[Rfam]
RNA sequence: CACGGUGUGUCGGCUAAACCGUUACCAUUACUGAGUUUAGUAAUGGUAAUGGUUCUUCUGCCACGCCGGCC
Numbered sequence: 001c002a003c004g005g006u007g008u009g010u011c012g013g014c015u016a017a018a019c020c021g022u023u024a025c026c027a028u029u030a031c032u033g034a035g036u037u038u039a040g041u042a043a044u045g046g047u048a049a050u051g052g053u054u055c056u057u058c059u060g061c062c063a064c065g066c067c068g069g070c071c
Base pairs, nucleotide, nucleotide: 007064008063009062011060012059013058017054018053019052020051022049023048024047025046026045027044028043029042030041031040032039033038